This 144-nucleotide RNA belongs to the Rfam family "Actinobacteria sRNA Ms_IGR-7".
The base pairs follow the family's consensus structure.
It scores 48 bits against the family's covariance model.
[Rfam]
RNA sequence: UGGAAGCGCUCACAAAACAGGGACGAAAGUAGAAGAACAUAGACGACACGGCGCUACUUUCGUCCCUGUUUUGUGAGCGCUUCCAUCUUCAAGAUGAACAGCUACCAACUAGCCCAAUUGUCCGUUCUUUUUUUGUGAGUUGAU
Numbered sequence: 001u002g003g004a005a006g007c008g009c010u011c012a013c014a015a016a017a018c019a020g021g022g023a024c025g026a027a028a029g030u031a032g033a034a035g036a037a038c039a040u041a042g043a044c045g046a047c048a049c050g051g052c053g054c055u056a057c058u059u060u061c062g063u064c065c066c067u068g069u070u071u072u073g074u075g076a077g078c079g080c081u082u083c084c085a086u087c088u089u090c091a092a093g094a095u096g097a098a099c100a101g102c103u104a105c106c107a108a109c110u111a112g113c114c115c116a117a118u119u120g121u122c123c124g125u126u127c128u129u130u131u132u133u134u135g136u137g138a139g140u141u142g143a144u
Stems, first nucleotide, its partner, number of pairs: 002084015018068005024062004029057001031055002110142004115137002